[Rfam]
RNA sequence: GUAGUGGCUCAUUCACCUUACUAUGACAGCCCUGCGAAAGCGGCCAAGCGCUUCAUAAAACUCCGAAUGACGCACAAUACGGUGCCUGCCGUCCACAUAACCGAUAAUCGUUGGCUUUGCCACGUUAUCAAGCAUCGGGCGCAACGUUGAGUUAGGCACCACCUAAUUUUUUUACGAUGAUUAAGUUAUCGUAAUCGACGGCAGACUCAAUGAGUCUGCCGUUUUUGU
Numbered sequence: 001g002u003a004g005u006g007g008c009u010c011a012u013u014c015a016c017c018u019u020a021c022u023a024u025g026a027c028a029g030c031c032c033u034g035c036g037a038a039a040g041c042g043g044c045c046a047a048g049c050g051c052u053u054c055a056u057a058a059a060a061c062u063c064c065g066a067a068u069g070a071c072g073c074a075c076a077a078u079a080c081g082g083u084g085c086c087u088g089c090c091g092u093c094c095a096c097a098u099a100a101c102c103g104a105u106a107a108u109c110g111u112u113g114g115c116u117u118u119g120c121c122a123c124g125u126u127a128u129c130a131a132g133c134a135u136c137g138g139g140c141g142c143a144a145c146g147u148u149g150a151g152u153u154a155g156g157c158a159c160c161a162c163c164u165a166a167u168u169u170u171u172u173u174a175c176g177a178u179g180a181u182u183a184a185g186u187u188a189u190c191g192u193a194a195u196c197g198a199c200g201g202c203a204g205a206c207u208c209a210a211u212g213a214g215u216c217u218g219c220c221g222u223u224u225u226u227g228u
Stems, first nucleotide, its partner, number of pairs: 001075002007073002009070004019057002027050001081160007091140004103129006169185003197223011

The family of this 228-nucleotide RNA from Paramixta manurensis is "GlmZ RNA activator of glmS mRNA". Clan: Glm clan. This RNA was discovered in E. coli during a large scale screen. The sraJ gene was expressed in early logarithmic phase, but its level decreased with cell growth. Specific cleavage products of this RNA were found. Identified in Yersinia pseudotuberculosis as Ysr248/153/sR016. By type it is a small RNA.